The family of this 55-nucleotide RNA from a Streptosporangiales bacterium is "L31-Actinobacteria ribosomal protein leader".
RNA sequence: GCGGUACCGGUUCACGCCCCAGUGUCCCAAGGCGGCACGAGGCGACCCGGCGACC
Numbered sequence: 001g002c003g004g005u006a007c008c009g010g011u012u013c014a015c016g017c018c019c020c021a022g023u024g025u026c027c028c029a030a031g032g033c034g035g036c037a038c039g040a041g042g043c044g045a046c047c048c049g050g051c052g053a054c055c
Base pairs, nucleotide, nucleotide: 003055004054005053007050008049009048010047015044016043017042018041020039022038023037024036025035026034
It scores 48 bits against the family's covariance model. It is annotated as a cis-regulatory leader.